Small nucleolar RNA SNORD70: an 86-nucleotide RNA sequence from Hymenochirus boettgeri. The pairing is the family consensus, mapped onto this sequence. Lineage of the source: Eukaryota > Craniata > Tetrapoda > Pipinae > Hymenochirus. snoRNA HBII-234 belongs to the C/D family of snoRNAs. It is the human orthologue of the mouse MBII-234 and is predicted to guide 2'O-ribose methylation of the small 18S rRNA on position A512. It is hosted, together with HBII-95, by the core C/D box snoRNA protein encoding gene NOP5/NOP58.
[Rfam]
RNA sequence: UCUGCUGUUGCCAAUGAUUAUUCUCAGUUCUGUUGAAAAUUUGUGAUUUCAUUGAACGUCGUCACUACCAAUGAGGCAACAUCAUA
Number, nucleotide and partner (000 for none) at each position: 001u086002c000003u084004g083005c000006u081007g080008u079009u078010g077011c076012c075013a000014a000015u000016g000017a000018u000019u000020a000021u000022u000023c000024u000025c000026a000027g000028u000029u000030c000031u000032g000033u000034u000035g000036a000037a000038a000039a000040u000041u000042u000043g000044u000045g000046a000047u000048u000049u000050c000051a000052u000053u000054g000055a000056a000057c000058g000059u000060c000061g000062u000063c000064a000065c000066u000067a000068c000069c000070a000071a000072u000073g000074a000075g012076g011077c010078a009079a008080c007081a006082u000083c004084a003085u000086a001

Gene Ontology terms of the family: RNA processing and nucleolus. Rfam 15.1 lists 1,085 matches to the family in 579 species.